[Rfam]
RNA sequence: CCCAGAGGUAUUGAUUGGUGAAUGUUUCAAAGUACGCUUUGCGUACGCAUCACUUACACCGACCUGCGCAGAAGCGCAGGUUUUUUUU
Numbered sequence: 001c002c003c004a005g006a007g008g009u010a011u012u013g014a015u016u017g018g019u020g021a022a023u024g025u026u027u028c029a030a031a032g033u034a035c036g037c038u039u040u041g042c043g044u045a046c047g048c049a050u051c052a053c054u055u056a057c058a059c060c061g062a063c064c065u066g067c068g069c070a071g072a073a074g075c076g077c078a079g080g081u082u083u084u085u086u087u088u
Base pairs, nucleotide, nucleotide: 016061017060018059019058020057021050032046033045034044035043036042062081063080064079065078066077067076068075069074
Shown here is an 88-nucleotide sequence from Kluyvera genomosp. 3, a member of the family "OmrA-B family". It scores 83 bits against the family's covariance model. Rfam 15.1 lists 153 matches to the family in 128 species. The literature on the family includes a 2001 paper in Curr Biol by Argaman et al., "Novel small RNA-encoding genes in the intergenic regions of Escherichia coli". Lineage of the source: Bacteria > Pseudomonadati > Pseudomonadota > Enterobacterales > Kluyvera. It is annotated as a small RNA.